A member of the RNA family "Bacterial RNase P class A" from Roseivirga misakiensis, 330 nucleotides long.
RNA sequence: AAUAUAAGUGGUCUUAUCGCCCCAAUCUGAUUAUUCAGGCCUUGGGGAGGAAAGUCCGGGCACCAAAGGGAAGCAUAGCGGCUAACGGCCGCCUCUCGAUUUCGAUCGAGACGGACCAGUGCAACAGAAAGAAUGUACAGGUUAAGCUGUAGUGAAAUCAGGUAAACUCUAUGCGGUGAAAUGCCACAUAAGCCUGCGAUUGAGAGUUCCCGCUCGAUGUAGGUGGGUAGGCAGAUAGACCUCAUUAGCAAUGAUGAGGCUAGAUAAAUGAUAAGAACGCUCCGACUUGUCGGGGUAAGACAGAACCCGGCUUAUAAGCUUAUAUUUUUU
Numbered sequence: 001a002a003u004a005u006a007a008g009u010g011g012u013c014u015u016a017u018c019g020c021c022c023c024a025a026u027c028u029g030a031u032u033a034u035u036c037a038g039g040c041c042u043u044g045g046g047g048a049g050g051a052a053a054g055u056c057c058g059g060g061c062a063c064c065a066a067a068g069g070g071a072a073g074c075a076u077a078g079c080g081g082c083u084a085a086c087g088g089c090c091g092c093c094u095c096u097c098g099a100u101u102u103c104g105a106u107c108g109a110g111a112c113g114g115a116c117c118a119g120u121g122c123a124a125c126a127g128a129a130a131g132a133a134u135g136u137a138c139a140g141g142u143u144a145a146g147c148u149g150u151a152g153u154g155a156a157a158u159c160a161g162g163u164a165a166a167c168u169c170u171a172u173g174c175g176g177u178g179a180a181a182u183g184c185c186a187c188a189u190a191a192g193c194c195u196g197c198g199a200u201u202g203a204g205a206g207u208u209c210c211c212g213c214u215c216g217a218u219g220u221a222g223g224u225g226g227g228u229a230g231g232c233a234g235a236u237a238g239a240c241c242u243c244a245u246u247a248g249c250a251a252u253g254a255u256g257a258g259g260c261u262a263g264a265u266a267a268a269u270g271a272u273a274a275g276a277a278c279g280c281u282c283c284g285a286c287u288u289g290u291c292g293g294g295g296u297a298a299g300a301c302a303g304a305a306c307c308c309g310g311c312u313u314a315u316a317a318g319c320u321u322a323u324a325u326u327u328u329u330u
Stems, first nucleotide, its partner, number of pairs: 001326009011315001012276007020047006028039001052313003056310005061178004068211004073174005078092005093113001094111007114169002119167002121163002136151001138149003182233004192224006204215004240259008
Source information
The source organism's lineage runs through Bacteria, Pseudomonadati, Cytophagia, Cytophagales and Roseivirga. By type it is a ribozyme.